[Rfam]
RNA sequence: GUGAAAUAAAUCACAAGAUAACAUACACCCCUUUGUUUGAACGUGAACAUUUCUCCCAUCCCCUUUGUAAAACGAAAACACCCUUUCCUAACUGAGGAAAGGGUGUUU
Numbered sequence: 001g002u003g004a005a006a007u008a009a010a011u012c013a014c015a016a017g018a019u020a021a022c023a024u025a026c027a028c029c030c031c032u033u034u035g036u037u038u039g040a041a042c043g044u045g046a047a048c049a050u051u052u053c054u055c056c057c058a059u060c061c062c063c064u065u066u067g068u069a070a071a072a073c074g075a076a077a078a079c080a081c082c083c084u085u086u087c088c089u090a091a092c093u094g095a096g097g098a099a100a101g102g103g104u105g106u107u108u
Base pairs, nucleotide, nucleotide: 003053004052005051006050007049011046012045013044014043020037021036022035023034067073079105080104081103082102083101084100085099086098087097088096089095
Dot-bracket structure: ..(((((...((((.....((((..........)))).....))))..))))).............(.....).....(((((((((((.....)))))))))))...